The record is a 250-nucleotide RNA sequence from Kineothrix alysoides, which matches "T-box leader" in Rfam. Pairs were carried over by alignment from the consensus structure, which is taken from published work. The match comes from Rfam's covariance-model search (118 bits). The organism belongs to Kineothrix, within Bacteria.
RNA sequence: AAAAAAGUGUUGAAAAGAGAUAGUAAAUAUUCUGAAGAUUACAGAGAGAGGUUGGUUGGUGUAAAACUUUAUUGAAGGAAUAUUGAACCGGUCUUGGAGCUGUGUACCGAAGGGAAUCCCUAAGGCUACACCGUGUGCGCUCGUUAAAGCGCUAGAGUAUAGAUUUACUAUGUACUCGAUGAGGCUUGUAUUGUGAAAUACAAGUAAAUUAAGGUGGUAUCACGAAACGUUUAGCGUUCUCGUCCUUAAA
Numbered sequence: 001a002a003a004a005a006a007g008u009g010u011u012g013a014a015a016a017g018a019g020a021u022a023g024u025a026a027a028u029a030u031u032c033u034g035a036a037g038a039u040u041a042c043a044g045a046g047a048g049a050g051g052u053u054g055g056u057u058g059g060u061g062u063a064a065a066a067c068u069u070u071a072u073u074g075a076a077g078g079a080a081u082a083u084u085g086a087a088c089c090g091g092u093c094u095u096g097g098a099g100c101u102g103u104g105u106a107c108c109g110a111a112g113g114g115a116a117u118c119c120c121u122a123a124g125g126c127u128a129c130a131c132c133g134u135g136u137g138c139g140c141u142c143g144u145u146a147a148a149g150c151g152c153u154a155g156a157g158u159a160u161a162g163a164u165u166u167a168c169u170a171u172g173u174a175c176u177c178g179a180u181g182a183g184g185c186u187u188g189u190a191u192u193g194u195g196a197a198a199u200a201c202a203a204g205u206a207a208a209u210u211a212a213g214g215u216g217g218u219a220u221c222a223c224g225a226a227a228c229g230u231u232u233a234g235c236g237u238u239c240u241c242g243u244c245c246u247u248a249a250a
Stems, first nucleotide, its partner, number of pairs: 007100002015095004026084006037073003048070006103130004107125002132143002184205007211247004222243004